[Rfam]
RNA sequence: CGAGAGAGUAGAAGCGUUCACCGUCGCACCGCAGGCGCCGCCAUCGGCACGCCGCCGGGAAGGUCGGCCGGAAAUUGCUCUCGGA
Numbered sequence: 001c002g003a004g005a006g007a008g009u010a011g012a013a014g015c016g017u018u019c020a021c022c023g024u025c026g027c028a029c030c031g032c033a034g035g036c037g038c039c040g041c042c043a044u045c046g047g048c049a050c051g052c053c054g055c056c057g058g059g060a061a062g063g064u065c066g067g068c069c070g071g072a073a074a075u076u077g078c079u080c081u082c083g084g085a
Stems, first nucleotide, its partner, number of pairs: 005081006015070001018072002021067003025063001